[Rfam]
RNA sequence: GGGGCCGUUACGGAUUCGACAGGCAUCGUUUGAGCUUGAAUUGCGCUUCGUAGGUUACGUCUACGCUAAAACGUUACAGUUAAAUAUAACUGCUAAAGAAAACAACUAUUCUUACGCUUUAGCUGCCUAAAAACAGUUAGCGUAGAUCCUCCCGGUAUCGCCCAUGUGCUCGGGUAAGGGUCCUAUUCUAAGUGGGAUACGCUCAACCUUUCCGUCUGCAAGGUUGAGAAGAGCUCAUCAGACUAGCAACAUCAGUCGCCUGUCACUCGGCAGCUGAUCACGCGAAACUUCAAUCGAGUUGACUAUGAGCGUAGAUUUUUAAGUGGCAAGAUGUUUGGACGCGGGUUCGACUCCCGCCGGCUCCAUUC
Numbered sequence: 001g002g003g004g005c006c007g008u009u010a011c012g013g014a015u016u017c018g019a020c021a022g023g024c025a026u027c028g029u030u031u032g033a034g035c036u037u038g039a040a041u042u043g044c045g046c047u048u049c050g051u052a053g054g055u056u057a058c059g060u061c062u063a064c065g066c067u068a069a070a071a072c073g074u075u076a077c078a079g080u081u082a083a084a085u086a087u088a089a090c091u092g093c094u095a096a097a098g099a100a101a102a103c104a105a106c107u108a109u110u111c112u113u114a115c116g117c118u119u120u121a122g123c124u125g126c127c128u129a130a131a132a133a134c135a136g137u138u139a140g141c142g143u144a145g146a147u148c149c150u151c152c153c154g155g156u157a158u159c160g161c162c163c164a165u166g167u168g169c170u171c172g173g174g175u176a177a178g179g180g181u182c183c184u185a186u187u188c189u190a191a192g193u194g195g196g197a198u199a200c201g202c203u204c205a206a207c208c209u210u211u212c213c214g215u216c217u218g219c220a221a222g223g224u225u226g227a228g229a230a231g232a233g234c235u236c237a238u239c240a241g242a243c244u245a246g247c248a249a250c251a252u253c254a255g256u257c258g259c260c261u262g263u264c265a266c267u268c269g270g271c272a273g274c275u276g277a278u279c280a281c282g283c284g285a286a287a288c289u290u291c292a293a294u295c296g297a298g299u300u301g302a303c304u305a306u307g308a309g310c311g312u313a314g315a316u317u318u319u320u321a322a323g324u325g326g327c328a329a330g331a332u333g334u335u336u337g338g339a340c341g342c343g344g345g346u347u348c349g350a351c352u353c354c355c356g357c358c359g360g361c362u363c364c365a366u367u368c
Base pairs, nucleotide, nucleotide: 001364002363003362004361005360006359007358020337021336022335023334024333025332026331027330029328034324035323036322037321038320039319040318044311045310046309047308048307049065050064051063052062053061054077055076057074058073059072060071119140120139121138122137123136124135125134145182146181147180148179149178150177151174152173153172154171155169156168157167158166161196162195163194164193165192202228203227204226205225206224207223208222209221210220214244217241246283247282251278252277253276254275255274258271259270260269262303263302264301265300267296341357342356343355344354345353

Overview
transfer-messenger RNA: a 368-nucleotide sequence from Enterococcus florum. About the family: Bacterial tmRNA, also known as 10Sa RNA or SsrA, is named for its dual tRNA and mRNA-like properties. Its role is to liberate the mRNA from a stalled ribosome. It is annotated as a non-coding RNA gene. Its Rfam clan is "tRNA clan".